Description: Selenocysteine transfer RNA: a 92-nucleotide RNA from Glaciimonas immobilis. The match comes from Rfam's covariance-model search (71 bits). The family's consensus secondary structure is taken from published work.
RNA sequence: GGAAGGCACACGCAUCCGGUGGUGCGGCCGGGCUUCAAACCCGGUAGGGGGCGUCAGCCGUCCUCUCGUAAGUUCGACUCUUGCUGCCUUCC
Dot-bracket structure: ((((((((..((((((....))))))((((((.......)))))).(((((.........)))))...((((.......)))).))))))))
Numbered sequence: 001g002g003a004a005g006g007c008a009c010a011c012g013c014a015u016c017c018g019g020u021g022g023u024g025c026g027g028c029c030g031g032g033c034u035u036c037a038a039a040c041c042c043g044g045u046a047g048g049g050g051g052c053g054u055c056a057g058c059c060g061u062c063c064u065c066u067c068g069u070a071a072g073u074u075c076g077a078c079u080c081u082u083g084c085u086g087c088c089u090u091c092c
Stems, first nucleotide, its partner, number of pairs: 001092008011026006027045006047065005069083004